[Rfam]
Nucleotides: 145
Stems, first nucleotide, its partner, number of pairs: 003143008017029003031125002033114002035063004058112002066090002094110005116128003
Number, partner (000 for none) and nucleotide at each position: 001000g002000c003143u004142u005141a006140u007139u008138c009137u010136c011000a012000g013000g014000g015000c016000g017029g018028g019027g020000u021000g022000c023000a024000a025000u026000u027019c028018c029017c030000c031125a032124c033114c034113g035063g036062c037061g038060g039000u040000a041000u042000c043000c044000u045000g046000c047000u048000g049000u050000g051000g052000c053000a054000g055000g056000g057000a058112g059111c060038c061037c062036g063035c064000g065000a066090g067089c068000g069000c070000c071000c072000g073000a074000c075000a076000u077000c078000g079000g080000u081000c082000g083000g084000g085000g086000u087000c088000a089067g090066c091000a092000g093000a094110u095109c096108c097107g098106g099000u100000g101000a102000g103000a104000a105000g106098c107097c108096g109095g110094a111059g112058c113034c114033g115000a116128c117127g118126g119000u120000u121000a122000u123000a124032g125031u126118c127117c128116g129000g130000a131000u132000g133000a134000a135000a136010g137009a138008g139007g140006a141005u142004a143003a144000c145000a